[Rfam]
RNA: MIR164 microRNA precursor family
RNA sequence: UGGAGAAGGGGAGCACGUGCAGGGGAGCUAGCAUUGGAGAGCAACAAGCUUCGUCCUCGCCUCGAACGCGAGUCCGGCCGUGCUCCGGCUCUGUGUCUCUGCACGUGCCCUGCUUCUCCAAC
Numbered sequence: 001u002g003g004a005g006a007a008g009g010g011g012a013g014c015a016c017g018u019g020c021a022g023g024g025g026a027g028c029u030a031g032c033a034u035u036g037g038a039g040a041g042c043a044a045c046a047a048g049c050u051u052c053g054u055c056c057u058c059g060c061c062u063c064g065a066a067c068g069c070g071a072g073u074c075c076g077g078c079c080g081u082g083c084u085c086c087g088g089c090u091c092u093g094u095g096u097c098u099c100u101g102c103a104c105g106u107g108c109c110c111u112g113c114u115u116c117u118c119c120a121a122c
Stems, first nucleotide, its partner, number of pairs: 001120008010111002013108012